Rfam assigns this 81-nucleotide RNA sequence from Geobacter sp. OR-1 to the family "c-di-GMP-I riboswitch aptamer". Lineage of the source: Bacteria > Thermodesulfobacteriota > Geobacterales > Geobacteraceae > Geobacter. Clan: c-di-GMP_I riboswitch clan. It scores 57 bits against the family's covariance model. Rfam's curators write: GEMM was predicted in a large-scale screen for bacterial structured RNA regulatory elements.
[Rfam]
RNA sequence: CAAUAAUACUGCCAAACCCCGGGUGACCGGGGGACGGAACGCCACGGGACUAAACAGCUUAUAGUCGGCCGGGUUGCCGGA
Numbered sequence: 001c002a003a004u005a006a007u008a009c010u011g012c013c014a015a016a017c018c019c020c021g022g023g024u025g026a027c028c029g030g031g032g033g034a035c036g037g038a039a040c041g042c043c044a045c046g047g048g049a050c051u052a053a054a055c056a057g058c059u060u061a062u063a064g065u066c067g068g069c070c071g072g073g074u075u076g077c078c079g080g081a
Base pairs, nucleotide, nucleotide: 012037013036017032018031019030020029021028022027041074042073043072045071046070047069048066049065050064